This 74-nucleotide RNA sequence from Hyunsoonleella pacifica belongs to the Rfam family "Flavo-1 RNA". The match comes from Rfam's covariance-model search (76 bits). Rfam classes the family as a small RNA. The source organism's lineage runs through Bacteria, Pseudomonadati, Flavobacteriales, Flavobacteriaceae and Hyunsoonleella.
RNA sequence: AUUUAGCCCCGAUUGCAGCGGCAUCCUUUUUUGCUUUUUCUGCAAAAAAGAUAUAGCGGAAAGCGGGAUAUAAC
Numbered sequence: 001a002u003u004u005a006g007c008c009c010c011g012a013u014u015g016c017a018g019c020g021g022c023a024u025c026c027u028u029u030u031u032u033g034c035u036u037u038u039u040c041u042g043c044a045a046a047a048a049a050g051a052u053a054u055a056g057c058g059g060a061a062a063g064c065g066g067g068a069u070a071u072a073a074c
Base pairs, nucleotide, nucleotide: 009066010065011064013062014061018057019056023052024051025050028048029047030046031045032044033043034042